[Rfam]
RNA: BsrG
Organism: Effusibacillus lacus
RNA sequence: UACGAUAGAAUCGGCUCCUCAUGGACGGUCGGCUCAUCCCCUGACGAAAGGGGGUGAUGCCAUGACAGUAUAUGAAUCCAUCUCCCUGAUGAUUGCAUUCGGGAUCUUGGUAAUUUCGAUGCUGUCGUUCCAUAAACGGAAAUAGACCGCCCCUUGGGUAAGAAGUGCGGUCUAUUUCAAAACUCACCGAGCCGGCCCCUUGCGAGGGCGACUGUUGUACUGACCGUAGGUGUAGCAGCACCUGCG
Numbered sequence: 001u002a003c004g005a006u007a008g009a010a011u012c013g014g015c016u017c018c019u020c021a022u023g024g025a026c027g028g029u030c031g032g033c034u035c036a037u038c039c040c041c042u043g044a045c046g047a048a049a050g051g052g053g054g055u056g057a058u059g060c061c062a063u064g065a066c067a068g069u070a071u072a073u074g075a076a077u078c079c080a081u082c083u084c085c086c087u088g089a090u091g092a093u094u095g096c097a098u099u100c101g102g103g104a105u106c107u108u109g110g111u112a113a114u115u116u117c118g119a120u121g122c123u124g125u126c127g128u129u130c131c132a133u134a135a136a137c138g139g140a141a142a143u144a145g146a147c148c149g150c151c152c153c154u155u156g157g158g159u160a161a162g163a164a165g166u167g168c169g170g171u172c173u174a175u176u177u178c179a180a181a182a183c184u185c186a187c188c189g190a191g192c193c194g195g196c197c198c199c200u201u202g203c204g205a206g207g208g209c210g211a212c213u214g215u216u217g218u219a220c221u222g223a224c225c226g227u228a229g230g231u232g233u234a235g236c237a238g239c240a241c242c243u244g245c246g
Base pairs, nucleotide, nucleotide: 001219002218003217004216005215007213008212011210012194013193014192015191016190017189018158019157020156021155023153024152027148028147029146030145034057035056036055038053039052040051041050042049064126065125066124067123068122069121070120077092078091102117103116104115169178170177195209196208197207198206225246226245227244228243229242230241231240232239233238